Annotation:
This 296-nucleotide RNA from Prochlorococcus marinus belongs to the Rfam family "Cyanobacteria transfer-messenger RNA". By type it is a non-coding RNA gene. Rfam's curators put it in the seed alignment. On this family, see Mao et al., RNA Biol 2010: "Variations on the tmRNA gene". The family's consensus secondary structure is taken from published work.

[Rfam]
RNA sequence: CUGUCAGAAUGGAAGUGUCCCCCUUUUGGCGGACUAGGUGAUCCACACCAGUGUCUCGGACAGCGGUUCGAUUCCGCUCAGCUCCAUUCCUCUUUUAGGUGUCUUGGGGCUGCAAUGGUUUCGACGGGGUAUGAGGAGGGUGACUGAAGCCUGCUCGGUAAGAGCAAAUCCGUAACUGCGAACAACAUCGUUCGUUUCUCCCGUCAGCCUGCCCUCGUGGCUGCCUGACCCUAAUAAGGGAGAUGGGGUGAGGUCAGCCUUAUCACCCAAAUGACCCAUGGGGGCUGCGAGGCCCC
Numbered sequence: 001c002u003g004u005c006a007g008a009a010u011g012g013a014a015g016u017g018u019c020c021c022c023c024u025u026u027u028g029g030c031g032g033a034c035u036a037g038g039u040g041a042u043c044c045a046c047a048c049c050a051g052u053g054u055c056u057c058g059g060a061c062a063g064c065g066g067u068u069c070g071a072u073u074c075c076g077c078u079c080a081g082c083u084c085c086a087u088u089c090c091u092c093u094u095u096u097a098g099g100u101g102u103c104u105u106g107g108g109g110c111u112g113c114a115a116u117g118g119u120u121u122c123g124a125c126g127g128g129g130u131a132u133g134a135g136g137a138g139g140g141u142g143a144c145u146g147a148a149g150c151c152u153g154c155u156c157g158g159u160a161a162g163a164g165c166a167a168a169u170c171c172g173u174a175a176c177u178g179c180g181a182a183c184a185a186c187a188u189c190g191u192u193c194g195u196u197u198c199u200c201c202c203g204u205c206a207g208c209c210u211g212c213c214c215u216c217g218u219g220g221c222u223g224c225c226u227g228a229c230c231c232u233a234a235u236a237a238g239g240g241a242g243a244u245g246g247g248g249u250g251a252g253g254u255c256a257g258c259c260u261u262a263u264c265a266c267c268c269a270a271a272u273g274a275c276c277c278a279u280g281g282g283g284g285c286u287g288c289g290a291g292g293c294c295c296c
Base pairs, nucleotide, nucleotide: 017034018033019032020031022029023028037145038144039143041141042140043139044138048136049135051132052131053130054129055128056127057126058125062078063077064076065075066074079112080111081110082109083108084107085106152166153165154164155163156162207226211221212220213219239268240267242264243263244262245261246260247259248258249257281296282295283294284293285292286291

Bacterial tmRNA, also known as 10Sa RNA or SsrA, is named for its dual tRNA and mRNA-like properties. Its role is to liberate the mRNA from a stalled ribosome. To accomplish this part of the tmRNA is used as a reading frame that ends in a translation stop signal. Its Rfam clan is "tRNA clan".